[Rfam]
RNA sequence: CAAAUUAAGUGGAGCAGUGGUCUCUUCACUUAGGUUUGAUAAGUGAGAUUCAACUCCUCCAUCUUGGUUUU
Numbered sequence: 001c002a003a004a005u006u007a008a009g010u011g012g013a014g015c016a017g018u019g020g021u022c023u024c025u026u027c028a029c030u031u032a033g034g035u036u037u038g039a040u041a042a043g044u045g046a047g048a049u050u051c052a053a054c055u056c057c058u059c060c061a062u063c064u065u066g067g068u069u070u071u
Stems, first nucleotide, its partner, number of pairs: 007065003010061005017055001018053001023048002026046006
RNA: mir-1175 microRNA precursor family
Organism: Sitophilus oryzae